[Rfam]
RNA sequence: AGCUGUUCUCAGGGCGGGGCGAAAUUCCCCACCGGCGGUGAGCGGCCAUGGCCGCAGAGCCCGCGAGCGCCUUCCUCUUAGGAAGGGUCAGCAGAUCAGGUGCAACUCCUGAGCCGACGGUCAUAGUCCGGAUGGAAGAGAAUGUGC
Numbered sequence: 001a002g003c004u005g006u007u008c009u010c011a012g013g014g015c016g017g018g019g020c021g022a023a024a025u026u027c028c029c030c031a032c033c034g035g036c037g038g039u040g041a042g043c044g045g046c047c048a049u050g051g052c053c054g055c056a057g058a059g060c061c062c063g064c065g066a067g068c069g070c071c072u073u074c075c076u077c078u079u080a081g082g083a084a085g086g087g088u089c090a091g092c093a094g095a096u097c098a099g100g101u102g103c104a105a106c107u108c109c110u111g112a113g114c115c116g117a118c119g120g121u122c123a124u125a126g127u128c129c130g131g132a133u134g135g136a137a138g139a140g141a142a143u144g145u146g147c
Base pairs, nucleotide, nucleotide: 004144005143006142007141008140009139010138017029018028019027031127032126033116034115035064036063037062038061059114060113067092068091096112097111098110099109100108118130119129120128